Record summary:
Molybdenum/Tungsten riboswitch aptamer (Moco RNA motif): a 118-nucleotide RNA sequence from Geobacter argillaceus. Lineage of the source: Bacteria > Pseudomonadati > Thermodesulfobacteriota > Desulfuromonadia > Geobacter.
[Rfam]
RNA sequence: AACACGCGUGCUCUCCGAGUCCUAGCUGCCUACAAGCCUUGUGCUCACGGCAGCGGACCACCGGGUCCUGCUGGAAACGGCAGUGCCUCCCUUUGGAAAGGAGACCUUCAUGACUGUU
Numbered sequence: 001a002a003c004a005c006g007c008g009u010g011c012u013c014u015c016c017g018a019g020u021c022c023u024a025g026c027u028g029c030c031u032a033c034a035a036g037c038c039u040u041g042u043g044c045u046c047a048c049g050g051c052a053g054c055g056g057a058c059c060a061c062c063g064g065g066u067c068c069u070g071c072u073g074g075a076a077a078c079g080g081c082a083g084u085g086c087c088u089c090c091c092u093u094u095g096g097a098a099a100g101g102a103g104a105c106c107u108u109c110a111u112g113a114c115u116g117u118u
Stems, first nucleotide, its partner, number of pairs: 003112002006109001012104005019058004025054006035045003063088004068083006089096002
Dot-bracket structure: ..((.(.....(((((..((((..((((((....(((.....)))...))))))))))....((((.((((((....)))))).))))((....))...)))))....).))......